[Rfam]
RNA: Bacterial RNase P class A
Organism: Actibacterium naphthalenivorans
Nucleotides: 372
Stems, first nucleotide, its partner, number of pairs: 001368010011357001012321007020031004036355003040352005045210004054256001056254001058206005063077005078092001079090004093201002098199002100195003115141002117137009149167006168190001169188003173184004214278004224269006249261004285304002288301005
Number, partner (000 for none) and nucleotide at each position: 001368g002367c003366g004365g005364a006363u007362g008361g009360c010359u011357g012321g013320a014319u015318g016317g017316c018315c019000g020031c021030g022029g023028g024000g025000c026000g027000a028023c029022c030021c031020g032000a033000g034000g035000a036355a037354a038353g039000u040352c041351c042350g043349g044348a045210c046209u047208c048207c049000a050000u051000g052000a053000a054256g055000c056254a057000a058206c059205g060204g061203u062202g063077c064076c065075g066074g067073g068000u069000a070000a071000c072000g073067c074066c075065c076064g077063g078092c079090c080089g081088g082087g083000g084000a085000a086000a087082c088081c089080c090079g091000a092078g093201g094200g095000a096000a097000a098199g099198c100195g101194c102193c103000a104000c105000a106000g107000a108000g109000a110000a111000c112000a113000a114000a115141c116140c117137g118136c119135c120134c121133c122132g123131g124130a125129u126000c127000c128000g129125a130124u131123c132122c133121g134120g135119g136118g137117u138000a139000a140116g141115g142000g143000u144000g145000a146000a147000a148000c149167g150166g151165u152164g153163g154162g155000g156000u157000a158000a159000g160000a161000g162154c163153c164152c165151a166150c167149c168190g169188c170187g171186g172000a173184c174183c175182u176181g177000g178000c179000a180000a181176c182175a183174g184173g185000g186171c187170c188169g189000g190168c191000a192000c193102g194101g195100c196000a197000a198099g199098c200094c201093c202062c203061a204060c205059c206058g207048g208047g209046a210045g211000c212000a213000a214278u215277g216276c217275c218000a219000a220000a221000u222000a223000g224269g225268g226267a227266u228265u229264u230000c231000g232000c233000g234000g235000g236000g237000g238000c239000a240000c241000g242000c243000c244000c245000c246000c247000a248000g249261g250260g251259g252258g253000c254056u255000u256054c257000a258252c259251c260250c261249c262000a263000g264229a265228g266227a267226u268225c269224c270000g271000g272000g273000u274000u275217g276216g277215c278214a279000g280000c281000u282000a283000a284000a285304g286303c287000g288301c289300g290299u291298c292297g293000g294000u295000a296000a297292c298291g299290g300289c301288g302000g303286g304285c305000a306000u307000a308000g309000a310000g311000g312000a313000a314000u315018g316017g317016u318015c319014a320013u321012c322000c323000a324000g325000g326000g327000g328000g329000c330000g331000c332000a333000a334000g335000c336000c337000c338000c339000c340000g341000g342000a343000c344000a345000g346000a347000a348044u349043c350042c351041g352040g353038c354037u355036u356000a357011c358000a359010g360009g361008c362007c363006a364005u365004c366003c367002g368001c369000g370000c371000a372000u